[Rfam]
RNA: Purine riboswitch aptamer
Organism: Oceanobacillus picturae
RNA sequence: AAAUACUAAAUUAAUAUAACCUGUAUAACCUCAGAAUAUGGCUUGAGGGUGUCUACCAGGAACCUUAAAAUCCUGAUUACAGAAAAUGAGUUAAAUCAU
Numbered sequence: 001a002a003a004u005a006c007u008a009a010a011u012u013a014a015u016a017u018a019a020c021c022u023g024u025a026u027a028a029c030c031u032c033a034g035a036a037u038a039u040g041g042c043u044u045g046a047g048g049g050u051g052u053c054u055a056c057c058a059g060g061a062a063c064c065u066u067a068a069a070a071u072c073c074u075g076a077u078u079a080c081a082g083a084a085a086a087u088g089a090g091u092u093a094a095a096u097c098a099u
Stems, first nucleotide, its partner, number of pairs: 021082005029048005034042001057075005